[Rfam]
RNA: Small nucleolar RNA SNORA33
RNA sequence: AUGCCAGUUCAAUGUGUCCGCUCAACUUAAAAAUGUUUUGUGGAGCAUAUAAAAAAAAGACACUGGUAAAGUAAAGCCACAGUACGAGCCUUGAAGACUUUGUAGUCUCUGAGGUCCCAAGAGAUGGCUACAGCU
Number, nucleotide and partner (000 for none) at each position: 001a000002u000003g067004c066005c065006a064007g063008u000009u000010c000011a000012a000013u000014g000015u000016g000017u044018c043019c042020g041021c040022u000023c000024a000025a000026c000027u000028u000029a000030a000031a000032a000033a000034u000035g000036u000037u000038u000039u000040g021041u020042g019043g018044a017045g000046c000047a000048u000049a000050u000051a000052a000053a000054a000055a000056a000057a000058a000059g000060a000061c000062a000063c007064u006065g005066g004067u003068a000069a000070a000071g000072u000073a000074a000075a000076g128077c127078c126079a125080c000081a000082g000083u000084a000085c000086g000087a000088g115089c114090c113091u112092u111093g110094a000095a000096g107097a106098c105099u000100u000101u000102g000103u000104a000105g098106u097107c096108u000109c000110u093111g092112a091113g090114g089115u088116c000117c000118c000119a000120a000121g000122a000123g000124a000125u079126g078127g077128c076129u000130a000131c000132a000133g000134c000135u000